[Rfam]
Shown here is a 51-nucleotide RNA from Novosphingobium sp. Leaf2, a member of the family "chrB-b RNA".
RNA sequence: UCGGGCAGGCGCGGAACGCCCGGUGAGACGGGCCCCCGUCCAAGCUUCCGC
Numbered sequence: 001u002c003g004g005g006c007a008g009g010c011g012c013g014g015a016a017c018g019c020c021c022g023g024u025g026a027g028a029c030g031g032g033c034c035c036c037c038g039u040c041c042a043a044g045c046u047u048c049c050g051c
Base pairs, nucleotide, nucleotide: 001023002022003021004020005019006018011051012050013049014048015047027040028039029038030037031036
The family's consensus secondary structure is taken from published work.